[Rfam]
RNA sequence: AUCUACUAAAUGCCGAAUCCCGUAACGGGUACGGAGGAACCGUUCUUGGGGUGAAUCCUUUUUAGGUAGGGUUAUCCUUGCCCGAACCCGUCAGCUAACUCCGGAGGCAAAAAGGAGAGGAUGG
Numbered sequence: 001a002u003c004u005a006c007u008a009a010a011u012g013c014c015g016a017a018u019c020c021c022g023u024a025a026c027g028g029g030u031a032c033g034g035a036g037g038a039a040c041c042g043u044u045c046u047u048g049g050g051g052u053g054a055a056u057c058c059u060u061u062u063u064a065g066g067u068a069g070g071g072u073u074a075u076c077c078u079u080g081c082c083c084g085a086a087c088c089c090g091u092c093a094g095c096u097a098a099c100u101c102c103g104g105a106g107g108c109a110a111a112a113a114g115g116a117g118a119g120g121a122u123g124g
Base pairs, nucleotide, nucleotide: 011109012108013107014106019029020028032103033102034101035100036099041048042047049089050088051087057066058065059064069083070082071081072080
RNA: c-di-AMP riboswitch aptamer (ydaO/yuaA leader)
Organism: Desulfotomaculum nigrificans